U5 spliceosomal RNA: a 117-nucleotide RNA sequence from Senna tora. NCBI's taxonomy places the organism under Eukaryota, Euphyllophyta, Pentapetalae, fabids, Senna. The base pairs follow the family's consensus structure, which is taken from published work. It scores 91 bits against the family's covariance model.
RNA sequence: AGCUACGCAGUGUGCACAAAGCGAACUAUUCUUUCGCCUUUUACUAAAGAAUACCGUGUGCACGCUGCAAUUAGUGGCAUACGCCAAUUUUUGUAGGGUCUUCUCCAUUCGGAGGGG
Numbered sequence: 001a002g003c004u005a006c007g008c009a010g011u012g013u014g015c016a017c018a019a020a021g022c023g024a025a026c027u028a029u030u031c032u033u034u035c036g037c038c039u040u041u042u043a044c045u046a047a048a049g050a051a052u053a054c055c056g057u058g059u060g061c062a063c064g065c066u067g068c069a070a071u072u073a074g075u076g077g078c079a080u081a082c083g084c085c086a087a088u089u090u091u092u093g094u095a096g097g098g099u100c101u102u103c104u105c106c107a108u109u110c111g112g113a114g115g116g117g
Base pairs, nucleotide, nucleotide: 003077004076005075006074008067009066010065011064012063013062014061015060016059017058018057027053028052029051030050031049032048033047034046100117101116102115103114104113105112